[Rfam]
RNA sequence: GUUUGUGGAUGGUGUUGAACUCAAGGGACAUGUGUGCUUACCUGUUUGUGGAUAGUGUUCAGCACCAGGGACAGGGGUGUUUACCU
Numbered sequence: 001g002u003u004u005g006u007g008g009a010u011g012g013u014g015u016u017g018a019a020c021u022c023a024a025g026g027g028a029c030a031u032g033u034g035u036g037c038u039u040a041c042c043u044g045u046u047u048g049u050g051g052a053u054a055g056u057g058u059u060c061a062g063c064a065c066c067a068g069g070g071a072c073a074g075g076g077g078u079g080u081u082u083a084c085c086u
Base pairs, nucleotide, nucleotide: 001072002071010067011066012065013064014063015062016061018059019058020057022055024053026047028045029044030043032041033040034039
Dot-bracket structure: ((.......(((((((.(((.(.(.(.(((.(((....))).))).).....).).))).)))))))...))..............